[Rfam]
RNA sequence: GUAGUGAUUUCUGUGUGUCGGUGUUUCUGCUUGAGCCAUUUGCGUGGUUAGGAUUUGCCGCCUAAUGAGAUUCUCUUGGCUCUGUUUGUGGCUUUUUUAGGCUACGCACAAUGGGGUAACGCUCAUUUGGGG
Numbered sequence: 001g002u003a004g005u006g007a008u009u010u011c012u013g014u015g016u017g018u019c020g021g022u023g024u025u026u027c028u029g030c031u032u033g034a035g036c037c038a039u040u041u042g043c044g045u046g047g048u049u050a051g052g053a054u055u056u057g058c059c060g061c062c063u064a065a066u067g068a069g070a071u072u073c074u075c076u077u078g079g080c081u082c083u084g085u086u087u088g089u090g091g092c093u094u095u096u097u098u099a100g101g102c103u104a105c106g107c108a109c110a111a112u113g114g115g116g117u118a119a120c121g122c123u124c125a126u127u128u129g130g131g132g
Stems, first nucleotide, its partner, number of pairs: 003074002006072005019060005026053003035048004088105007

The record is a 132-nucleotide sequence from Helicobacter magdeburgensis, which matches "purD RNA motif" in Rfam.
NCBI's taxonomy places the organism under Bacteria, Pseudomonadati, Campylobacterota, Helicobacteraceae, Helicobacter.
Rfam links the family to the GO term regulation of gene expression.
Rfam classes the family as a cis-regulatory element.
On this family, see Weinberg et al., Nucleic Acids Res 2007: "Identification of 22 candidate structured RNAs in bacteria using the CMfinder comparative genomics pipeline".